[Rfam]
RNA sequence: CGCAUCAGCGCUCAGGCAUUUGCGGAACCAAAACCGCAAAAGUGAUGCGGCAUUCCAAGAAGUUUCGGUGCUAUCGCAAACGGCGAAAGCCUGCCAGAUGUAUAGGGUAAACAAAUUUGGACAGAGACUGGUGGAAAUAGCACUUCCACCGGUCUUUU
Numbered sequence: 001c002g003c004a005u006c007a008g009c010g011c012u013c014a015g016g017c018a019u020u021u022g023c024g025g026a027a028c029c030a031a032a033a034c035c036g037c038a039a040a041a042g043u044g045a046u047g048c049g050g051c052a053u054u055c056c057a058a059g060a061a062g063u064u065u066c067g068g069u070g071c072u073a074u075c076g077c078a079a080a081c082g083g084c085g086a087a088a089g090c091c092u093g094c095c096a097g098a099u100g101u102a103u104a105g106g107g108u109a110a111a112c113a114a115a116u117u118u119g120g121a122c123a124g125a126g127a128c129u130g131g132u133g134g135a136a137a138u139a140g141c142a143c144u145u146c147c148a149c150c151g152g153u154c155u156u157u158u
Stems, first nucleotide, its partner, number of pairs: 001049007021038005028120005050101005062081004066076002068143007082091003124156013
This 158-nucleotide sequence belongs to the Rfam family "FuFi-1 RNA". The family's consensus secondary structure is taken from published work. It is one of the family's seed sequences.